RNA sequence: AGUUAUAAUCAGCUUAGUUUCCGGUCAUCCGGAAAGCGGGGAAACCAAUCUUUUGGGGCGAAUCGGUCGAUUGCCAGGCCGUAGGGAACCAUCUAUCCCGAGUCCGUCAGCUAACCUCGUAGGCUAUGGAUGGGUCAUGU
Numbered sequence: 001a002g003u004u005a006u007a008a009u010c011a012g013c014u015u016a017g018u019u020u021c022c023g024g025u026c027a028u029c030c031g032g033a034a035a036g037c038g039g040g041g042a043a044a045c046c047a048a049u050c051u052u053u054u055g056g057g058g059c060g061a062a063u064c065g066g067u068c069g070a071u072u073g074c075c076a077g078g079c080c081g082u083a084g085g086g087a088a089c090c091a092u093c094u095a096u097c098c099c100g101a102g103u104c105c106g107u108c109a110g111c112u113a114a115c116c117u118c119g120u121a122g123g124c125u126a127u128g129g130a131u132g133g134g135u136c137a138u139g140u
Base pairs, nucleotide, nucleotide: 011125012124013123014122018035019034020033021032022031023030024029036120037119038118039117040116041115046055047054056105057104058103064081065080066079067078084099085098086097087096
c-di-AMP riboswitch aptamer (ydaO/yuaA leader): a 140-nucleotide RNA sequence from Paenibacillus montanisoli. Rfam links the family to the GO terms regulation of gene expression and cyclic-di-AMP binding.